[Rfam]
RNA sequence: GCGGGUAUAGCAUAGUGGUAAUGCUCUAGCCUUCCAAGCUAGCUAGGCGGGUUCGAUUCCCGCUACCCGCU
Numbered sequence: 001g002c003g004g005g006u007a008u009a010g011c012a013u014a015g016u017g018g019u020a021a022u023g024c025u026c027u028a029g030c031c032u033u034c035c036a037a038g039c040u041a042g043c044u045a046g047g048c049g050g051g052u053u054c055g056a057u058u059c060c061c062g063c064u065a066c067c068c069g070c071u
Stems, first nucleotide, its partner, number of pairs: 001070007010024004026042005047063005
About this RNA:
A member of the RNA family "tRNA" from Sphingopyxis lindanitolerans, 71 nucleotides long. The organism belongs to Sphingopyxis, within Bacteria. The base pairs follow the family's consensus structure, which is taken from published work. The family's RNA type in Rfam is transfer RNA.